[Rfam]
RNA sequence: CUGGUAGUACCAAAGUGCUCACAGUGCAGGUAGUUUUGGCAUCUCUCUACUGCACCGUGAGCACUUCUAGUACUCUUGG
Numbered sequence: 001c002u003g004g005u006a007g008u009a010c011c012a013a014a015g016u017g018c019u020c021a022c023a024g025u026g027c028a029g030g031u032a033g034u035u036u037u038g039g040c041a042u043c044u045c046u047c048u049a050c051u052g053c054a055c056c057g058u059g060a061g062c063a064c065u066u067c068u069a070g071u072a073c074u075c076u077u078g079g
Stems, first nucleotide, its partner, number of pairs: 004076001006074002009071002013066010024055004029051005